[Rfam]
RNA sequence: GACUUGCGAUGAGGCAGAAGGUUACCUCUAAAAAGAGGAUAGUUUUUGCUGAGUAUGUCCGUUUUAAAAAUGGGCGAAAA
Number, nucleotide and partner (000 for none) at each position: 001g000002a000003c000004u000005u000006g000007c000008g000009a000010u000011g000012a000013g000014g049015c048016a047017g000018a046019a045020g044021g043022u000023u000024a000025c038026c037027u036028c035029u034030a000031a000032a000033a000034a029035g028036a027037g026038g025039a000040u000041a000042g000043u021044u020045u019046u018047u016048g015049c014050u000051g000052a000053g000054u000055a000056u079057g000058u077059c076060c000061g000062u000063u074064u073065u072066a000067a000068a000069a000070a000071u000072g065073g064074g063075c000076g059077a058078a000079a056080a000
RNA: S10-Clostridia ribosomal protein leader
Organism: Alkalicella caledoniensis